[Rfam]
RNA: mir-340 microRNA precursor family
Organism: Equus caballus
Nucleotides: 067
Base pairs, nucleotide, nucleotide: 001067003065004064005063006062007061008060009059010058014053015052016051017050018049019048021046022045023044024043026042027041028040029039030038
Number, partner (000 for none) and nucleotide at each position: 001067g002000g003065u004064u005063a006062u007061a008060a009059a010058g011000c012000a013000a014053u015052g016051a017050g018049a019048c020000u021046g022045a023044u024043u025000g026042u027041c028040a029039u030038g031000u032000g033000u034000c035000g036000c037000u038030u039029g040028u041027g042026g043024g044023a045022u046021c047000c048019g049018u050017c051016u052015c053014a054000g055000u056000u057000a058010c059009u060008u061007u062006a063005u064004a065003g066000c067001c